A member of the RNA family "TPP riboswitch aptamer (THI element)" from Desulfopila aestuarii, 99 nucleotides long.
Rfam's curators write: Vitamin B(1) in its active form thiamin pyrophosphate (TPP) is an essential coenzyme that is synthesised by coupling of pyrimidine and thiazole moieties in bacteria.
The match comes from Rfam's covariance-model search (74 bits).

RNA sequence: AACCAUCGCUAGGGGUGCAUGACACGCUGAGAGGAUGAACUCCAACCCUUAGAACCUGAUCCGGGUAAUGCCGGCGCAGGGAAGCGGCCGGUUACUGCA
Numbered sequence: 001a002a003c004c005a006u007c008g009c010u011a012g013g014g015g016u017g018c019a020u021g022a023c024a025c026g027c028u029g030a031g032a033g034g035a036u037g038a039a040c041u042c043c044a045a046c047c048c049u050u051a052g053a054a055c056c057u058g059a060u061c062c063g064g065g066u067a068a069u070g071c072c073g074g075c076g077c078a079g080g081g082a083a084g085c086g087g088c089c090g091g092u093u094a095c096u097g098c099a
Stems, first nucleotide, its partner, number of pairs: 006087005011049004017027002020024001034042002055080004061074004